[Rfam]
Nucleotides: 273
Stems, first nucleotide, its partner, number of pairs: 006024006025271004033251004039231002044068006053061002075227003080111002085106003089102001091100003115132005135223001137218001140216002143213003149201004156193002160188003237246002253265004
Number, partner (000 for none) and nucleotide at each position: 001000g002000a003000a004000a005000a006024g007023g008022a009021g010020u011019g012000u013000g014000a015000g016000a017000g018000a019011c020010a021009c022008u023007c024006c025271c026270g027269c028268c029000g030000a031000a032000a033251g034250u035249c036248c037000a038000a039231g040230g041000g042000u043000u044068c045067c046066u047065g048064c049063g050000u051000a052000a053061a054060g055000c056000u057000a058000a059000u060054c061053u062000g063049c064048g065047c066046a067045g068044g069000g070000u071000u072000a073000g074000c075227c076226g077225g078000c079000u080111c081110c082000u083000a084000a085106g086105g087104c088000g089102a090000g091100g092099c093098c094000g095000a096000a097000a098093g099092g100091c101000g102089u103000a104087g105086u106085c107000g108000a109000u110081g111080g112000g113000a114000a115132u116131g117130g118129g119128g120000u121000g122000a123000a124000u125000a126000u127000u128119c129118c130117c131116c132115a133000g134000c135223c136000a137218g138000u139000g140216g141215g142000u143213a144212g145211u146000g147000a148000c149201g150200a151199a152198u153000g154000a155000c156193g157192g158000a159000a160188g161187c162186u163000g164000u165000c166000g167000g168000a169000g170000g171000u172000u173000a174000u175000u176000g177000g178000a179000u180000u181000c182000c183000g184000a185000a186162g187161g188160c189000g190000g191000c192157c193156u194000a195000g196000u197000u198152g199151u200150u201149c202000c203000a204000g205000g206000a207000a208000a209000u210000a211145g212144c213143u214000c215141c216140c217000a218137c219000a220000u221000c222000a223135g224000a225077c226076c227075g228000u229000a230040c231039c232000c233000g234000a235000a236000a237246c238245c239000g240000a241000c242000a243000c244000a245238g246237g247000u248036g249035g250034a251033c252000u253265g254264g255263u256262a257000g258000a259000g260000c261000a262256u263255a264254c265253c266000a267000a268028g269027g270026c271025g272000c273000u

Rfam assigns this 273-nucleotide part of an RNA from Methylopila turkensis to the family "Bacterial large subunit ribosomal RNA".
A search with the family's covariance model found it, with a score of 2743 bits.
Pairs were carried over by alignment from the consensus structure, which is taken from published work.
Taxonomically the source falls in Methylopila (Bacteria, Pseudomonadati, Pseudomonadota, Hyphomicrobiales).
Clan: LSU clan.